The record is a 514-nucleotide part of an RNA from Araneus ventricosus, which matches "Eukaryotic large subunit ribosomal RNA" in Rfam. The base pairs follow the family's consensus structure, which is taken from published work. The match comes from Rfam's covariance-model search (3018 bits).
[Rfam]
RNA sequence: CCCUCCGAAGUUUCCCUCAGGAUAGCUGGCGCUCGGAGAACUCAGUCUCAUCCGGUAAAGCGAAUGAUUAGAGGCCUUGGGGCCGAAACGACCUCAACCUAUUCUCAAACUUUAAAUGGGUGAGAAGUCCGCCUUGCAUGACUGAAGGCCGGACGAUUGGAUGAGAGUGCCCAGUGGGCCACUUUUGGUAAGCAGAACUGGCGCUGUGGGAUGAACCAAACGUCGGGUUACGGCAUCCGAUGCGAGACGCUCAUGAGACCCCAUGAAAGGUGUUGGUUGCUCUAGACAGCAGGUCGGUGGCCAUGGAAGUCGGAAUCCGCUAAGGAGUGUGUAACAACUCACCUGCCGAAGCAACUAGCCCUGAAAAUGGAUGAUGCUUCAGCGUCGAGCCCAUACCCGACCGCUUCCGCAGAAAUCGAAUUCGGUUCUUAUGCGGAAGUGAGUAGGAGGGUCGCGGUGGCGAGCGUCGAAGGUGCCGGGCGUGAGCCCGCCUGGAGCCGCCACCGGUGCAGAU
Dot-bracket structure: ((((((....(.(((....))).)...((((((............((((((((....(((....(((..(.(((..((((((.(.....).))))))))).)..)))..)).)....)))))))).(((((((((.........))))).))))...........))))))......((((.(((((.....))))).))))....(((......)))...(((((.(...(((......(.(....(((.................(((.((((((((((.......(((((.(((...((.........))...)))(...)(...((......)).).)))))...)))))))))))))...................)))..)))))...).)))))(((((((((......................)))))))))....)))))).(.((((((((.((......((.....(((....)))...))...))))))))))..).....